[Rfam]
The family of this 100-nucleotide sequence from Cellulomonas pakistanensis is "SAM riboswitch aptamer (S box leader)". Pairs were carried over by alignment from the consensus structure, which is taken from published work.
RNA sequence: GGACCAUCCAGAGCGGCCGAGAGAUCUGGCUCGUCGACGCCGCAGCAACCCGCGGACCCCGGGGUCCGGCCGAGGGUGCUUCCGCCAGGUCCGAUGGAGG
Numbered sequence: 001g002g003a004c005c006a007u008c009c010a011g012a013g014c015g016g017c018c019g020a021g022a023g024a025u026c027u028g029g030c031u032c033g034u035c036g037a038c039g040c041c042g043c044a045g046c047a048a049c050c051c052g053c054g055g056a057c058c059c060c061g062g063g064g065u066c067c068g069g070c071c072g073a074g075g076g077u078g079c080u081u082c083c084g085c086c087a088g089g090u091c092c093g094a095u096g097g098a099g100g
Base pairs, nucleotide, nucleotide: 004097005096006095007094008093013043014042015041016040017039021032022031023030026088027087028086029085044080045079046078047077049076050075051072052071084092